[Rfam]
RNA sequence: UGAAUCCGUACGGGAGAGAGUCCGUGCAGCCGGCGCGGGCCGCCGAAGGAGCAAUUCCUCCCCAGAGAACCUCUCAGGCGCUGUGGACCGUACGGUCGAG
Numbered sequence: 001u002g003a004a005u006c007c008g009u010a011c012g013g014g015a016g017a018g019a020g021u022c023c024g025u026g027c028a029g030c031c032g033g034c035g036c037g038g039g040c041c042g043c044c045g046a047a048g049g050a051g052c053a054a055u056u057c058c059u060c061c062c063c064a065g066a067g068a069a070c071c072u073c074u075c076a077g078g079c080g081c082u083g084u085g086g087a088c089c090g091u092a093c094g095g096u097c098g099a100g
Stems, first nucleotide, its partner, number of pairs: 006095008020040006042079003045075002049073003056066002